[Rfam]
RNA sequence: GGGGUGUGCUCAGAGCAGGGGGUCUGAAGAAACAGCUCCUCUGUUUACAGCAUACCCAACAGGAAUCUGGGUGCACUGUGACAAGGGACACAAAACUUGUGGCCUUCCUAUGAGCAAAUACCCAACCCGU
Numbered sequence: 001g002g003g004g005u006g007u008g009c010u011c012a013g014a015g016c017a018g019g020g021g022g023u024c025u026g027a028a029g030a031a032a033c034a035g036c037u038c039c040u041c042u043g044u045u046u047a048c049a050g051c052a053u054a055c056c057c058a059a060c061a062g063g064a065a066u067c068u069g070g071g072u073g074c075a076c077u078g079u080g081a082c083a084a085g086g087g088a089c090a091c092a093a094a095a096c097u098u099g100u101g102g103c104c105u106u107c108c109u110a111u112g113a114g115c116a117a118a119u120a121c122c123c124a125a126c127c128c129g130u
Base pairs, nucleotide, nucleotide: 002057003056004055005054006053007052008051013046014045015044016043017042018041019040020039021038022036023035070123071122077116078115079114082112083111085105086104087103089101090100091099092098093097
RNA: Small nucleolar RNA SNORA11
Organism: Phocoena sinus